[Rfam]
RNA sequence: GGGGGCGUCCUGGUUUCGACGGAUGGUCUGAGGUGGGGGCUGCAUGCCGCGGACGAUGCGUCACCGCGUAACAAUCGUAUCAAAACCAUAAAUGCGAACUCUAACGAGCUAGCCCUCGCGGCCUAAGUGCCCCGACGUGUACCCGGUGAAGUCUGUGAGCCGGGUGUGCGACUACUUACAGGCUGGCCUGACGGGCGGGCGAACGGCCCCAAGGCGAGAUCUACAGGACGCUAGGUGUGGAGGAUGCUGUGAGUCGCAGCCGCCACUCCGAAAUCAAAUGACUUACUACGCAUGGAGACGCUUUCAUUGAUGGCGAUUCGGACAGGGGUUCAACUCCCCUCGCCUCCACUA
Numbered sequence: 001g002g003g004g005g006c007g008u009c010c011u012g013g014u015u016u017c018g019a020c021g022g023a024u025g026g027u028c029u030g031a032g033g034u035g036g037g038g039g040c041u042g043c044a045u046g047c048c049g050c051g052g053a054c055g056a057u058g059c060g061u062c063a064c065c066g067c068g069u070a071a072c073a074a075u076c077g078u079a080u081c082a083a084a085a086c087c088a089u090a091a092a093u094g095c096g097a098a099c100u101c102u103a104a105c106g107a108g109c110u111a112g113c114c115c116u117c118g119c120g121g122c123c124u125a126a127g128u129g130c131c132c133c134g135a136c137g138u139g140u141a142c143c144c145g146g147u148g149a150a151g152u153c154u155g156u157g158a159g160c161c162g163g164g165u166g167u168g169c170g171a172c173u174a175c176u177u178a179c180a181g182g183c184u185g186g187c188c189u190g191a192c193g194g195g196c197g198g199g200c201g202a203a204c205g206g207c208c209c210c211a212a213g214g215c216g217a218g219a220u221c222u223a224c225a226g227g228a229c230g231c232u233a234g235g236u237g238u239g240g241a242g243g244a245u246g247c248u249g250u251g252a253g254u255c256g257c258a259g260c261c262g263c264c265a266c267u268c269c270g271a272a273a274u275c276a277a278a279u280g281a282c283u284u285a286c287u288a289c290g291c292a293u294g295g296a297g298a299c300g301c302u303u304u305c306a307u308u309g310a311u312g313g314c315g316a317u318u319c320g321g322a323c324a325g326g327g328g329u330u331c332a333a334c335u336c337c338c339c340u341c342g343c344c345u346c347c348a349c350u351a
Stems, first nucleotide, its partner, number of pairs: 001347007020320005026314003032308009043294005048068005055081006114137001116135003120131003138170005144162004151183007186215004193208002197232002234269002237266004242261002245258003249286007324340005
RNA: transfer-messenger RNA
Organism: Roseimicrobium sp. ORNL1